RNA sequence: CCGCAUUCCCCGGGGAGCGAGCUUUCGCUGAGAGGGGCGGGGUAAGCGCCGCCCGACCCGUUGAACCUGAACCCGUUAGCACGGGCGGAGGGAAGGGUCUGGCAGCCAUG
Numbered sequence: 001c002c003g004c005a006u007u008c009c010c011c012g013g014g015g016a017g018c019g020a021g022c023u024u025u026c027g028c029u030g031a032g033a034g035g036g037g038c039g040g041g042g043u044a045a046g047c048g049c050c051g052c053c054c055g056a057c058c059c060g061u062u063g064a065a066c067c068u069g070a071a072c073c074c075g076u077u078a079g080c081a082c083g084g085g086c087g088g089a090g091g092g093a094a095g096g097g098u099c100u101g102g103c104a105g106c107c108a109u110g
Stems, first nucleotide, its partner, number of pairs: 008097003011060004017028004035054005066091003072085004